Glycine riboswitch aptamer: an 89-nucleotide sequence from Sporomusa silvacetica.
Pairs were carried over by alignment from the consensus structure.
The match comes from Rfam's covariance-model search (68 bits).

[Rfam]
Nucleotides: 089
Base pairs, nucleotide, nucleotide: 006084007083008082009081010080011079012078013077020033021032022031023030035069036068037067038065039064042063043062044061048056
Number, partner (000 for none) and nucleotide at each position: 001000a002000u003000g004000a005000u006084g007083g008082u009081u010080a011079u012078a013077g014000g015000a016000g017000a018000g019000a020033c021032c022031g023030c024000u025000u026000g027000a028000c029000u030023g031022c032021g033020g034000c035069g036068c037067c038065g039064a040000a041000g042063g043062a044061g045000u046000a047000a048056g049000a050000a051000c052000u053000u054000u055000g056048u057000u058000a059000a060000a061044c062043u063042c064039u065038c066000a067037g068036g069035c070000a071000a072000a073000a074000g075000g076000a077013c078012u079011a080010u081009a082008g083007c084006u085000g086000g087000a088000c089000u